This 200-nucleotide RNA from Cronobacter sakazakii belongs to the Rfam family "GlmZ RNA activator of glmS mRNA".
Taxonomically the source falls in Cronobacter sakazakii (Bacteria, Pseudomonadota, Gammaproteobacteria, Cronobacter).
The match comes from Rfam's covariance-model search (203 bits).
This RNA was discovered in E. coli during a large scale screen. The sraJ gene was expressed in early logarithmic phase, but its level decreased with cell growth.
By type it is a small RNA.
The family is grouped with related families in Rfam's "Glm clan".
Pairs were carried over by alignment from the consensus structure, which is taken from published work.
RNA sequence: GUAGAUGCUCAUUCCACUUAUUAUGUUUGCUCCGGCUUCAUAAACCCAGGAAUGACGCAGAGCCGUUUACGGUGCUUAUCGUCCACAGACAGAUGUCGCUUCGGCCUCAUCAAACACCAUGGACAUAACGUUGAGUGAAGCACCACAUUUGUUGUCAAACAGACCUGUUUUGAUACCUGCCUUCGGGCAGGUAUUUUUUU
Numbered sequence: 001g002u003a004g005a006u007g008c009u010c011a012u013u014c015c016a017c018u019u020a021u022u023a024u025g026u027u028u029g030c031u032c033c034g035g036c037u038u039c040a041u042a043a044a045c046c047c048a049g050g051a052a053u054g055a056c057g058c059a060g061a062g063c064c065g066u067u068u069a070c071g072g073u074g075c076u077u078a079u080c081g082u083c084c085a086c087a088g089a090c091a092g093a094u095g096u097c098g099c100u101u102c103g104g105c106c107u108c109a110u111c112a113a114a115c116a117c118c119a120u121g122g123a124c125a126u127a128a129c130g131u132u133g134a135g136u137g138a139a140g141c142a143c144c145a146c147a148u149u150u151g152u153u154g155u156c157a158a159a160c161a162g163a164c165c166u167g168u169u170u171u172g173a174u175a176c177c178u179g180c181c182u183u184c185g186g187g188c189a190g191g192u193a194u195u196u197u198u199u200u
Stems, first nucleotide, its partner, number of pairs: 001063002006059003009055004015050001017049001019042002027035001029033001071144007081124005092111004154164003172195010